[Rfam]
RNA sequence: GAAGUGUCUCGCAGGACAGCCUCGGCGGAGGUGGUCCGCGGGGUAGAGCACCGAUGGGGUGGUAAGGGCUCGAAAGGGCCCGCCAUCCUUUCGAACUCCGAAUCCGCGGACGCCGUAGAUGCCGGGAGUGGGGUGUGCGGGGUAAGCUCGCACGCCGAGAGGGGAACAACCCAGA
Numbered sequence: 001g002a003a004g005u006g007u008c009u010c011g012c013a014g015g016a017c018a019g020c021c022u023c024g025g026c027g028g029a030g031g032u033g034g035u036c037c038g039c040g041g042g043g044u045a046g047a048g049c050a051c052c053g054a055u056g057g058g059g060u061g062g063u064a065a066g067g068g069c070u071c072g073a074a075a076g077g078g079c080c081c082g083c084c085a086u087c088c089u090u091u092c093g094a095a096c097u098c099c100g101a102a103u104c105c106g107c108g109g110a111c112g113c114c115g116u117a118g119a120u121g122c123c124g125g126g127a128g129u130g131g132g133g134u135g136u137g138c139g140g141g142g143u144a145a146g147c148u149c150g151c152a153c154g155c156c157g158a159g160a161g162g163g164g165a166a167c168a169a170c171c172c173a174g175a
Stems, first nucleotide, its partner, number of pairs: 005018005020128001021126006030114003034111008046099001047097002053092002056089007066081006132156009161172003